[Rfam]
RNA: Selenocysteine insertion sequence 1
RNA sequence: CAUUCAACUUAUGAGGAUUAUUUCUUAAAGGCCUCUGGCUCGGAAAUAGUCUGAACCUUAUUG
Number, nucleotide and partner (000 for none) at each position: 001c063002a062003u000004u060005c000006a000007a000008c000009u000010u000011a000012u000013g000014a000015g000016g051017a050018u049019u048020a047021u046022u045023u044024c043025u042026u000027a000028a000029a000030g000031g039032c038033c037034u000035c000036u000037g033038g032039c031040u000041c000042g025043g024044a023045a022046a021047u020048a019049g018050u017051c016052u000053g000054a000055a000056c000057c000058u000059u000060a004061u000062u002063g001